[Rfam]
RNA sequence: GUGAACACUUAACUUGAUAGGCAGAAUGAUAGAGUAAAAGCUUGGCAGUUAAGAAAGUAUAAAAAAAUUUCUUACUGUAUAAGCGUAACUAGAGAGGUCACAAAGUCUUGGUGACAGCCAGUUUUCUAAAAAUGUCUACUCUGAUCCUCCGACAUGCUGGAUUUGAAUGUGUAUAAAAAUCCGGUGUGAAGCUCGGUGAAGUCGGCUGAACGUUGUCGUAGUGCCUAGUGGUAACCGAAAGCUAAUCAGAGAUGGUUGGUGCAACUGAUAGGCCGGGAGUCGUAAAA
Numbered sequence: 001g002u003g004a005a006c007a008c009u010u011a012a013c014u015u016g017a018u019a020g021g022c023a024g025a026a027u028g029a030u031a032g033a034g035u036a037a038a039a040g041c042u043u044g045g046c047a048g049u050u051a052a053g054a055a056a057g058u059a060u061a062a063a064a065a066a067a068u069u070u071c072u073u074a075c076u077g078u079a080u081a082a083g084c085g086u087a088a089c090u091a092g093a094g095a096g097g098u099c100a101c102a103a104a105g106u107c108u109u110g111g112u113g114a115c116a117g118c119c120a121g122u123u124u125u126c127u128a129a130a131a132a133u134g135u136c137u138a139c140u141c142u143g144a145u146c147c148u149c150c151g152a153c154a155u156g157c158u159g160g161a162u163u164u165g166a167a168u169g170u171g172u173a174u175a176a177a178a179a180u181c182c183g184g185u186g187u188g189a190a191g192c193u194c195g196g197u198g199a200a201g202u203c204g205g206c207u208g209a210a211c212g213u214u215g216u217c218g219u220a221g222u223g224c225c226u227a228g229u230g231g232u233a234a235c236c237g238a239a240a241g242c243u244a245a246u247c248a249g250a251g252a253u254g255g256u257u258g259g260u261g262c263a264a265c266u267g268a269u270a271g272g273c274c275g276g277g278a279g280u281c282g283u284a285a286a287a
Base pairs, nucleotide, nucleotide: 018138019137020136021135022134023133031127032126033125034124139279140278141277142276149196150195151194152193153188154187155186156185157184158183159182160181161180162179163178164177203275204274205273206272207271212265213264214263215262216261217237218236223232224231241260242259243258244257245256246255247254248253